[Rfam]
Nucleotides: 148
Stems, first nucleotide, its partner, number of pairs: 012142004023131006031123005040115015
Number, partner (000 for none) and nucleotide at each position: 001000g002000u003000u004000a005000c006000c007000u008000a009000a010000a011000a012142u013141a014140c015139u016000c017000u018000u019000c020000u021000u022000c023131u024130g025129u026128c027127a028126u029000c030000c031123c032122a033121g034120u035119g036000u037000c038000c039000a040115g041114a042113c043112a044111c045110u046109g047108g048107g049106a050105u051104c052103c053102a054101g055000a056000a057000a058000a059000c060000u061000u062000a063000a064000u065000u066000u067000u068000a069000a070000a071000u072000g073000a074000a075000u076000a077000c078000a079000u080000u081000a082000g083000g084000c085000u086000g087000u088000u089000g090000u091000a092000u093000a094000a095000u096000a097000a098000g099000a100000a101054c102053u103052g104051g105050a106049u107048u108047c109046c110045a111044g112043u113042g114041u115040c116000a117000a118000u119035c120034a121033c122032u123031g124000a125000a126028a127027u128026g129025a130024c131023a132000c133000c134000c135000u136000u137000c138000c139015g140014g141013u142012g143000g144000g145000g146000a147000u148000u